[Rfam]
RNA sequence: GUUAUUUGAUCUUUGGUGAUUUUAGCUGUAUGGCAGAUACAUAUGAAAUCCAUAGAGCUUUAUUACCAAAAACCAAAUGAU
Numbered sequence: 001g002u003u004a005u006u007u008g009a010u011c012u013u014u015g016g017u018g019a020u021u022u023u024a025g026c027u028g029u030a031u032g033g034c035a036g037a038u039a040c041a042u043a044u045g046a047a048a049u050c051c052a053u054a055g056a057g058c059u060u061u062a063u064u065a066c067c068a069a070a071a072a073c074c075a076a077a078u079g080a081u
Stems, first nucleotide, its partner, number of pairs: 001081005007075002010072001012070009024059004029054005

Source information
Rfam assigns this 81-nucleotide sequence from Ceratitis capitata to the family "mir-9/mir-79 microRNA precursor family". Its family is annotated with RISC complex and miRNA-mediated post-transcriptional gene silencing in the Gene Ontology. The family has 214 seed sequences and 5,647 matches in Rfam 15.1. The source organism's lineage runs through Eukaryota, Opisthokonta, Eumetazoa, Eremoneura and Ceratitis.